[Rfam]
RNA: SAM riboswitch aptamer (S box leader)
RNA sequence: AACUCAUCCAGAGCAGCAGAGGGACUGGCCCGAUGAAGCUGCGGCAACCAUUGAUUAUUUCAAAACGGUGCCAAUUCCUUUAGGCAGAUACCUAAAAGAUGAGAG
Numbered sequence: 001a002a003c004u005c006a007u008c009c010a011g012a013g014c015a016g017c018a019g020a021g022g023g024a025c026u027g028g029c030c031c032g033a034u035g036a037a038g039c040u041g042c043g044g045c046a047a048c049c050a051u052u053g054a055u056u057a058u059u060u061c062a063a064a065a066c067g068g069u070g071c072c073a074a075u076u077c078c079u080u081u082a083g084g085c086a087g088a089u090a091c092c093u094a095a096a097a098g099a100u101g102a103g104a105g
Stems, first nucleotide, its partner, number of pairs: 003103006013042005021031003027078002043072004048068002051063003076097001081094004